Record summary:
A member of the RNA family "F6 TB sRNA" from Rhodococcus ruber, 56 nucleotides long. On this family, see Arnvig and Young, Mol Microbiol 2009: "Identification of small RNAs in Mycobacterium tuberculosis". The family's RNA type in Rfam is small RNA.
RNA sequence: CAGUCGACCUCGCGCUGCUGCUUGACCCCCGACCUGGCGGCAGCGCGAGGUCUUUC
Numbered sequence: 001c002a003g004u005c006g007a008c009c010u011c012g013c014g015c016u017g018c019u020g021c022u023u024g025a026c027c028c029c030c031g032a033c034c035u036g037g038c039g040g041c042a043g044c045g046c047g048a049g050g051u052c053u054u055u056c
Base pairs, nucleotide, nucleotide: 003055007051008050009049010048011047012046013045014044015043016042017041018040019039020038021037022036

The source organism's lineage runs through Bacteria, Bacillati, Actinomycetota, Actinomycetes and Rhodococcus ruber. It scores 55 bits against the family's covariance model.